Shown here is a 77-nucleotide sequence from Edolisoma coerulescens, a member of the family "mir-458 microRNA precursor family".
For this family Rfam cites "Conservation of small RNA pathways in platypus" (Murchison et al., Genome Res, 2008).
The family has 12 seed sequences and 1,011 matches in Rfam 15.1.
It scores 63 bits against the family's covariance model.
NCBI's taxonomy places the organism under Eukaryota, Opisthokonta, Theropoda, Campephagidae, Edolisoma.

[Rfam]
RNA sequence: GUACUUAUGGCAGCACCAUUCCAAGAGCUAUGACAAUGACAUGUUUCUAGCUCUGGAAAUGGCGCUGCCAUCGGCAC
Dot-bracket structure: .(.(..(((.(((..(((((...(((((((.................)))))))...)))))..))).)))..).).